[Rfam]
RNA: Bacterial large subunit ribosomal RNA, nucleotides 2562 to 2821
Organism: Acutalibacter sp. 1XD8-33
RNA sequence: GGAUAUUUGAGGAGAGCUGUCCUUAGUACGAGAGGACCGGGAUGGACACACCUCUGGCGCACCAGUUGUCAUGCCAAUGGCACGGCUGGGCAGCUAUGUGUGGAACGGAUAAACGCUGAAAGCAUCUAAGCGUGAAGCCGCCUCCAAGAUUAGAUAUCCCAUAGCGUAAGCUAGUAAGGCCCCUUGUAGACUACAAGGUUGAUAGGCUGCGUGUGUAAGCAUGGUAACAUGUUCAGCUUGGCAGUACUAAUAGGCCGAGG
Numbered sequence: 001g002g003a004u005a006u007u008u009g010a011g012g013a014g015a016g017c018u019g020u021c022c023u024u025a026g027u028a029c030g031a032g033a034g035g036a037c038c039g040g041g042a043u044g045g046a047c048a049c050a051c052c053u054c055u056g057g058c059g060c061a062c063c064a065g066u067u068g069u070c071a072u073g074c075c076a077a078u079g080g081c082a083c084g085g086c087u088g089g090g091c092a093g094c095u096a097u098g099u100g101u102g103g104a105a106c107g108g109a110u111a112a113a114c115g116c117u118g119a120a121a122g123c124a125u126c127u128a129a130g131c132g133u134g135a136a137g138c139c140g141c142c143u144c145c146a147a148g149a150u151u152a153g154a155u156a157u158c159c160c161a162u163a164g165c166g167u168a169a170g171c172u173a174g175u176a177a178g179g180c181c182c183c184u185u186g187u188a189g190a191c192u193a194c195a196a197g198g199u200u201g202a203u204a205g206g207c208u209g210c211g212u213g214u215g216u217a218a219g220c221a222u223g224g225u226a227a228c229a230u231g232u233u234c235a236g237c238u239u240g241g242c243a244g245u246a247c248u249a250a251u252a253g254g255c256c257g258a259g260g
Base pairs, nucleotide, nucleotide: 001159002158003157004156005155006154007153008152011145012144013143014142017045018044019043020042021041022040023039047102048101049100050099051098055096056095057094062089063088064087065086066085067082068081069080070079071078072077106140107139108138113133114132115131116130117129162173163172164171175258178256179255180254181253182198183197184196185195186194203249204248205247206245207244208243209242210241211239213237219232220231221230222229223228